[Rfam]
RNA sequence: GAUUUCUGUUGGUGUAAAUCCACUCACCUCAAUUUAGGAUGAGAAACAAUUCUCUAUUGGUAGCAAACGGUAAUCCACUAAGCGGAGAAAUUCUUGG
Numbered sequence: 001g002a003u004u005u006c007u008g009u010u011g012g013u014g015u016a017a018a019u020c021c022a023c024u025c026a027c028c029u030c031a032a033u034u035u036a037g038g039a040u041g042a043g044a045a046a047c048a049a050u051u052c053u054c055u056a057u058u059g060g061u062a063g064c065a066a067a068c069g070g071u072a073a074u075c076c077a078c079u080a081a082g083c084g085g086a087g088a089a090a091u092u093c094u095u096g097g
Stems, first nucleotide, its partner, number of pairs: 010022003052087004057077001059075003063071002
This 97-nucleotide RNA sequence from Mikania micrantha belongs to the Rfam family "Plastid-rps12 3UTR RNA". The literature on the family includes a 2023 paper in Plant Commun by Richter et al., "Retrograde signaling in plants: A critical review focusing on the GUN pathway and beyond". The family has 1,299 seed sequences and 1,710 matches in Rfam 15.1. Plastid rpl20 is a non-coding RNA (ncRNA) recognised in plastids. It was found in the three prime untranslated region (3UTR) of rps12 gene, its 3UTR location sugest a role in transcript maduration. Rfam classes the family as a cis-regulatory element.